[Rfam]
RNA sequence: GGCGUAAAGGAUGCGUAGGCGGUUAAACAAGUUAUAUGUUAAAUAUAUAGGCUUAACCUGUAGAAAGCAUAUAAAACUGUUUAACUAGAGUGCAGGAGAGGUAAGUGGAAUUCCUAGUGUAGCGGUGAAAUGCGUAGAGAUUAGGAAGAACACCAGUGGCGAAGGCGACUUACUGGACUGUAACUGACGCUGAGGCAUGAGAGCAUGGGGAGCAAACAGGAUUAGAUACCCUGGUAGUCCAUGCUGUAAACGAUGGGUACUAGGUGUGGGUUGUGAAUAACAAUUCGUGCCGUCGCAAACGCAAUAAGUACCCCGCCUGAGGAGUACGAUCGCAAGAUUAAAACUCAAAGGAAU
Numbered sequence: 001g002g003c004g005u006a007a008a009g010g011a012u013g014c015g016u017a018g019g020c021g022g023u024u025a026a027a028c029a030a031g032u033u034a035u036a037u038g039u040u041a042a043a044u045a046u047a048u049a050g051g052c053u054u055a056a057c058c059u060g061u062a063g064a065a066a067g068c069a070u071a072u073a074a075a076a077c078u079g080u081u082u083a084a085c086u087a088g089a090g091u092g093c094a095g096g097a098g099a100g101g102u103a104a105g106u107g108g109a110a111u112u113c114c115u116a117g118u119g120u121a122g123c124g125g126u127g128a129a130a131u132g133c134g135u136a137g138a139g140a141u142u143a144g145g146a147a148g149a150a151c152a153c154c155a156g157u158g159g160c161g162a163a164g165g166c167g168a169c170u171u172a173c174u175g176g177a178c179u180g181u182a183a184c185u186g187a188c189g190c191u192g193a194g195g196c197a198u199g200a201g202a203g204c205a206u207g208g209g210g211a212g213c214a215a216a217c218a219g220g221a222u223u224a225g226a227u228a229c230c231c232u233g234g235u236a237g238u239c240c241a242u243g244c245u246g247u248a249a250a251c252g253a254u255g256g257g258u259a260c261u262a263g264g265u266g267u268g269g270g271u272u273g274u275g276a277a278u279a280a281c282a283a284u285u286c287g288u289g290c291c292g293u294c295g296c297a298a299a300c301g302c303a304a305u306a307a308g309u310a311c312c313c314c315g316c317c318u319g320a321g322g323a324g325u326a327c328g329a330u331c332g333c334a335a336g337a338u339u340a341a342a343a344c345u346c347a348a349a350g351g352a353a354u
Stems, first nucleotide, its partner, number of pairs: 001317003009314001011198004016192001018191003022085007030078002032074009046062006089185003092181004100174007107151001111147008122133003159166002203244006212238002217233004255313006263291012295302002319346003328339004
This 354-nucleotide part of an RNA from Candidatus Arthromitus sp. SFB-mouse belongs to the Rfam family "Bacterial small subunit ribosomal RNA". Rfam 15.1 lists 42,628 matches to the family in 10,626 species. Its Rfam clan is "SSU clan". The organism belongs to Candidatus Arthromitus sp. SFB-mouse, within Bacteria.